[Rfam]
RNA sequence: UCAGACUGAGCAUUUGUUAAAAAAAUUUCGCAUGGUGAAUCCCCCUGUGCGGAGGGGCGACUGGUGUAUAAGGUGUCAUCUCUGACGACAACCUGGAACGAGAUACGCGGGUUCAGGGACACCGGACUGAACUCACCGGGAGGCACCCGGCACCAUGUUCAUGGUGAUACAGAAAUGCGGCUUCAGCCCCUCUCCGGAGGGGCUUUCUUAUGGAC
Numbered sequence: 001u002c003a004g005a006c007u008g009a010g011c012a013u014u015u016g017u018u019a020a021a022a023a024a025a026u027u028u029c030g031c032a033u034g035g036u037g038a039a040u041c042c043c044c045c046u047g048u049g050c051g052g053a054g055g056g057g058c059g060a061c062u063g064g065u066g067u068a069u070a071a072g073g074u075g076u077c078a079u080c081u082c083u084g085a086c087g088a089c090a091a092c093c094u095g096g097a098a099c100g101a102g103a104u105a106c107g108c109g110g111g112u113u114c115a116g117g118g119a120c121a122c123c124g125g126a127c128u129g130a131a132c133u134c135a136c137c138g139g140g141a142g143g144c145a146c147c148c149g150g151c152a153c154c155a156u157g158u159u160c161a162u163g164g165u166g167a168u169a170c171a172g173a174a175a176u177g178c179g180g181c182u183u184c185a186g187c188c189c190c191u192c193u194c195c196g197g198a199g200g201g202g203c204u205u206u207c208u209u210a211u212g213g214a215c
Base pairs, nucleotide, nucleotide: 014167015166016165030158031157032156033155034154035153036152037151042057043056044055045054046053064099065098102108109134110133111132112131114129115128116127136150137149138148139147140146176214178212185204186203187202188201189200190199191198
This 215-nucleotide RNA from Stx2a-converting phage Stx2_95 belongs to the Rfam family "Gammaproteobacterial sRNA STnc100". It is annotated as a small RNA. The organism belongs to Caudoviricetes, within Viruses.